Source information: The family of this 181-nucleotide RNA sequence from Gallibacterium salpingitidis is "6S / SsrS RNA". The family has 150 seed sequences and 5,006 matches in Rfam 15.1. E. coli 6S RNA was the first non coding RNA to be sequenced, but its function was unknown until recently. It consists of 184 nucleotides that fold into an extended hairpin structure with a large single-stranded internal bulge. The 6S RNA specifically associates with RNA polymerase holoenzyme containing the sigma70 specificity factor. Taxonomically the source falls in Gallibacterium (Bacteria, Pseudomonadati, Pasteurellales, Pasteurellaceae).
RNA sequence: UAGCACCUGGGGUGUUCGACAAUGGGUUACGUCCCUGAGCCGAUACUGAUAUAUUUUAGAGUUGGUUACCUACAAUCGGUGAGCAUGCUUGUUUAUCAAGAAGCCUAAUGAAUGUAAGACUGACUCCCUUGAACCGUAGGGUUCAAGGACCGACCACCCGUAUCGGCACCUCGGGUCCUCA
Numbered sequence: 001u002a003g004c005a006c007c008u009g010g011g012g013u014g015u016u017c018g019a020c021a022a023u024g025g026g027u028u029a030c031g032u033c034c035c036u037g038a039g040c041c042g043a044u045a046c047u048g049a050u051a052u053a054u055u056u057u058a059g060a061g062u063u064g065g066u067u068a069c070c071u072a073c074a075a076u077c078g079g080u081g082a083g084c085a086u087g088c089u090u091g092u093u094u095a096u097c098a099a100g101a102a103g104c105c106u107a108a109u110g111a112a113u114g115u116a117a118g119a120c121u122g123a124c125u126c127c128c129u130u131g132a133a134c135c136g137u138a139g140g141g142u143u144c145a146a147g148g149a150c151c152g153a154c155c156a157c158c159c160g161u162a163u164c165g166g167c168a169c170c171u172c173g174g175g176u177c178c179u180c181a
Stems, first nucleotide, its partner, number of pairs: 002179002005176011017165003031150004036145006059126003063122005071116004076111002083104002088100004